[Rfam]
RNA sequence: ACCCUUCUCAUUUCUGCGCGCGCGCUUAUAUAGGUCCUGCCGGGCUUGCCCGGAUAUGGCGAUAAAUCGUGUCGUGUAAUAGAUGCAGCGGACCCGGGGGCGGUACCCGGCGGCUCCACCAGAAGGCCCGGAUACGGGUUUCCUGACGGGGCCGAACUAGGAUCGACGUGUAUUCAAAGACGGCAGUUUGCCCGGCCUGAAUGAGCCGUUAAACCGUUCAAAACUACAAGUGCUAACGAUAACGAAGCACUCGCGAUUGCUGCGUAACUGAACUCCCUCACGGGAACUAGGUUACAAGGCUAAGCGCGGUUCGGUCCGCACCGGGCAACAGAAGCGGAAUCC
Dot-bracket structure: .......................................((((......))))....(((((.......((((((........(((.(((...(((((.......)))))(((((((..............................)))))))............)))))).......))))))..)))))((((.[[[....)))).........]]]......................................................................................((((..[.[[[[.))))...........]]]].]..
Numbered sequence: 001a002c003c004c005u006u007c008u009c010a011u012u013u014c015u016g017c018g019c020g021c022g023c024g025c026u027u028a029u030a031u032a033g034g035u036c037c038u039g040c041c042g043g044g045c046u047u048g049c050c051c052g053g054a055u056a057u058g059g060c061g062a063u064a065a066a067u068c069g070u071g072u073c074g075u076g077u078a079a080u081a082g083a084u085g086c087a088g089c090g091g092a093c094c095c096g097g098g099g100g101c102g103g104u105a106c107c108c109g110g111c112g113g114c115u116c117c118a119c120c121a122g123a124a125g126g127c128c129c130g131g132a133u134a135c136g137g138g139u140u141u142c143c144u145g146a147c148g149g150g151g152c153c154g155a156a157c158u159a160g161g162a163u164c165g166a167c168g169u170g171u172a173u174u175c176a177a178a179g180a181c182g183g184c185a186g187u188u189u190g191c192c193c194g195g196c197c198u199g200a201a202u203g204a205g206c207c208g209u210u211a212a213a214c215c216g217u218u219c220a221a222a223a224c225u226a227c228a229a230g231u232g233c234u235a236a237c238g239a240u241a242a243c244g245a246a247g248c249a250c251u252c253g254c255g256a257u258u259g260c261u262g263c264g265u266a267a268c269u270g271a272a273c274u275c276c277c278u279c280a281c282g283g284g285a286a287c288u289a290g291g292u293u294a295c296a297a298g299g300c301u302a303a304g305c306g307c308g309g310u311u312c313g314g315u316c317c318g319c320a321c322c323g324g325g326c327a328a329c330a331g332a333a334g335c336g337g338a339a340u341c342c
Stems, first nucleotide, its partner, number of pairs: 040053004058192005070185006084172003088169003094110005111154007193208004198220003307323004313340001315338004
The family of this 342-nucleotide RNA sequence from Sphingomonas sp. YR710 is "Alphaproteobacteria transfer-messenger RNA". The family's consensus secondary structure is taken from published work. Bacterial tmRNA, also known as 10Sa RNA or SsrA, is named for its dual tRNA and mRNA-like properties. Its role is to liberate the mRNA from a stalled ribosome. To accomplish this part of the tmRNA is used as a reading frame that ends in a translation stop signal. The broken mRNA is replaced in the ribosome by the tmRNA and translation of the tmRNA leads to addition of a proteolysis tag to the incomplete protein enabling recognition by a protease. A reference for the family is Williams and Bartel (1996), "Phylogenetic analysis of tmRNA secondary structure", RNA. It scores 214 bits against the family's covariance model. The organism belongs to Sphingomonas, within Bacteria.